[Rfam]
This 83-nucleotide RNA sequence from Conger conger belongs to the Rfam family "mir-7 microRNA precursor family". This family represents the microRNA (miRNA) precursor mir-7. The match comes from Rfam's covariance-model search (67 bits). For this family Rfam cites "microRNAs: tiny regulators with great potential" (Ambros, Cell, 2001).
RNA sequence: CCACUGCAGUGUGGAAGACUAGUGAUUUUGUUGUUCUAGAUGUCAAACCUGACAACAAGUCAUAGUCUACCUCACAGCUGUGU
Numbered sequence: 001c002c003a004c005u006g007c008a009g010u011g012u013g014g015a016a017g018a019c020u021a022g023u024g025a026u027u028u029u030g031u032u033g034u035u036c037u038a039g040a041u042g043u044c045a046a047a048c049c050u051g052a053c054a055a056c057a058a059g060u061c062a063u064a065g066u067c068u069a070c071c072u073c074a075c076a077g078c079u080g081u082g083u
Stems, first nucleotide, its partner, number of pairs: 001082001004080001007077001009075003013071002016068005022063007030056006
The family's consensus secondary structure was predicted with PFOLD.